RNA sequence: GCUGCUCUGAUAAUCACACACCUCUCCUUGGUGAGCAGCAGGCAACGCUGAAAUAGCGGCUAAGUGUGAGA
Dot-bracket structure: (((((((............(((.......))))))))))......(((((...))))).............

Background:
A member of the RNA family "HDV ribozyme from F. prausnitzii" from Oscillospiraceae bacterium Marseille-Q3528, 71 nucleotides long. A reference for the family is Webb et al. (2009), "Widespread occurrence of self-cleaving ribozymes", Science. Gene Ontology term of the family: catalytic activity.